Rfam assigns this 325-nucleotide RNA sequence from Bucco capensis to the family "Small Cajal body-specific RNA 7". Gene Ontology terms of the family: RNA processing and nucleolus.
[Rfam]
RNA sequence: UGGAAGUGAUGAAGUAGAGAUAAUUGGAUGUCUCUUGGAAUGCAGUGUGUGUGAUAAAUGGAUUUUAAACCUAGUGUAACUUGGUGUGGGGUGUGGGGGGACUCUGUGUGUGUGUGUGCAUCUCUAGAAGAGGCUUUCAGUGGGGGCACUGAUACUGCAGUGCUGAUUCCGGAGUGCAUCUGAGGCAUGUUGGUAAUUUCUGGGGGUGCCACUUGACAACAUUGCCAAUGAUUAAAGCCCAAAACAAGCCCACCAGCACAAAGCCUGGGCAUCCUAGAAUCUCUAGCAGGUUCAUUAAUAGUAGUGAUCCUGUGAUCUGAUCCAA
Numbered sequence: 001u002g003g004a005a006g007u008g009a010u011g012a013a014g015u016a017g018a019g020a021u022a023a024u025u026g027g028a029u030g031u032c033u034c035u036u037g038g039a040a041u042g043c044a045g046u047g048u049g050u051g052u053g054a055u056a057a058a059u060g061g062a063u064u065u066u067a068a069a070c071c072u073a074g075u076g077u078a079a080c081u082u083g084g085u086g087u088g089g090g091g092u093g094u095g096g097g098g099g100g101a102c103u104c105u106g107u108g109u110g111u112g113u114g115u116g117u118g119c120a121u122c123u124c125u126a127g128a129a130g131a132g133g134c135u136u137u138c139a140g141u142g143g144g145g146g147c148a149c150u151g152a153u154a155c156u157g158c159a160g161u162g163c164u165g166a167u168u169c170c171g172g173a174g175u176g177c178a179u180c181u182g183a184g185g186c187a188u189g190u191u192g193g194u195a196a197u198u199u200c201u202g203g204g205g206g207u208g209c210c211a212c213u214u215g216a217c218a219a220c221a222u223u224g225c226c227a228a229u230g231a232u233u234a235a236a237g238c239c240c241a242a243a244a245c246a247a248g249c250c251c252a253c254c255a256g257c258a259c260a261a262a263g264c265c266u267g268g269g270c271a272u273c274c275u276a277g278a279a280u281c282u283c284u285a286g287c288a289g290g291u292u293c294a295u296u297a298a299u300a301g302u303a304g305u306g307a308u309c310c311u312g313u314g315a316u317c318u319g320a321u322c323c324a325a
Base pairs, nucleotide, nucleotide: 001324002323003322004321188221189220190219191218192217194215195214197211200208201206